[Rfam]
RNA sequence: AGCUAAAGUAAAAUAAUGAUCUGUAUAACCUCAAUAAUAUGGAUUGAGGGUCUCUACCAGGAACCAUAAAAUCCUGACUACAAAAAUUUGCUUGCAUUUU
Numbered sequence: 001a002g003c004u005a006a007a008g009u010a011a012a013a014u015a016a017u018g019a020u021c022u023g024u025a026u027a028a029c030c031u032c033a034a035u036a037a038u039a040u041g042g043a044u045u046g047a048g049g050g051u052c053u054c055u056a057c058c059a060g061g062a063a064c065c066a067u068a069a070a071a072u073c074c075u076g077a078c079u080a081c082a083a084a085a086a087u088u089u090g091c092u093u094g095c096a097u098u099u100u
Base pairs, nucleotide, nucleotide: 020084022082023081024080025079029049030048031047032046033045034044035043058076059075060074061073062072